This 62-nucleotide RNA sequence from Solanum tuberosum belongs to the Rfam family "Plastid-psbN 5UTR RNA". Rfam's curators write: Plastid psbN is a non-coding RNA (ncRNA) recognised in plastids. It was reported as a conserved 11 stem-loop in the prime untranslated region (5UTR) of psbN genes. The family's consensus secondary structure was predicted with LocARNA. By type it is a cis-regulatory element.

[Rfam]
Nucleotides: 062
Stems, first nucleotide, its partner, number of pairs: 018046011
Number, partner (000 for none) and nucleotide at each position: 001000u002000a003000c004000u005000a006000c007000c008000u009000a010000c011000c012000a013000u014000c015000a016000a017000a018046g019045g020044a021043g022042u023041a024040g025039u026038u027037u028036c029000c030000c031000a032000c033000c034000g035000a036028g037027g038026a039025g040024c041023u042022a043021c044020u045019u046018u047000a048000c049000c050000a051000u052000a053000u054000u055000c056000u057000g058000a059000a060000u061000u062000c

Source information: The source organism's lineage runs through Eukaryota, Streptophytina, eudicotyledons, Solanaceae and Solanum.